[Rfam]
RNA sequence: AGCUCAAUGAUUUCAGCAUGUUAUAUACGCUAUUCUGAUUGCAGAUGUUGAAAAAAAUAUUUCUGAGAGCU
Numbered sequence: 001a002g003c004u005c006a007a008u009g010a011u012u013u014c015a016g017c018a019u020g021u022u023a024u025a026u027a028c029g030c031u032a033u034u035c036u037g038a039u040u041g042c043a044g045a046u047g048u049u050g051a052a053a054a055a056a057a058u059a060u061u062u063c064u065g066a067g068a069g070c071u
Stems, first nucleotide, its partner, number of pairs: 001071005
Dot-bracket structure: (((((.............................................................)))))
A member of the RNA family "Small nucleolar RNA U54" from Paspalum vaginatum, 71 nucleotides long. Pairs were carried over by alignment from the consensus structure, which was predicted with PFOLD. The family's RNA type in Rfam is C/D-box small nucleolar RNA. The organism belongs to Paspalum, within Eukaryota. Rfam describes the family as follows. U54 is a C/D box small nucleolar RNA, which acts as a methylation guide for 18S ribosomal RNA in plants. Its Rfam clan is "U54 clan".